RNA sequence: GCCGUUGCACCGCCUAAUCCUGGGCGAGUUGCCCGGGAGCCGGGGACCCAUCGCACUUGGGGUGAAUCCACUUCGGUGGUAGGGAAACGCAGCUCCCUUACCCGAACCCGUCAGCUAACCCGGCCGGCAGAGGGAGAGGAACA
Numbered sequence: 001g002c003c004g005u006u007g008c009a010c011c012g013c014c015u016a017a018u019c020c021u022g023g024g025c026g027a028g029u030u031g032c033c034c035g036g037g038a039g040c041c042g043g044g045g046a047c048c049c050a051u052c053g054c055a056c057u058u059g060g061g062g063u064g065a066a067u068c069c070a071c072u073u074c075g076g077u078g079g080u081a082g083g084g085a086a087a088c089g090c091a092g093c094u095c096c097c098u099u100a101c102c103c104g105a106a107c108c109c110g111u112c113a114g115c116u117a118a119c120c121c122g123g124c125c126g127g128c129a130g131a132g133g134g135a136g137a138g139g140a141a142c143a
Stems, first nucleotide, its partner, number of pairs: 012128003018038009039124006049059002060109003068079004082103003
The family of this 143-nucleotide sequence from Nonomuraea longispora is "c-di-AMP riboswitch aptamer (ydaO/yuaA leader)". Taxonomically the source falls in Nonomuraea (Bacteria, Actinomycetota, Streptosporangiales, Streptosporangiaceae). Rfam's curators write: This family represents a conserved RNA structure found upstream of the ydaO and yuaA genes in Bacillus subtilis and related genes in other bacteria.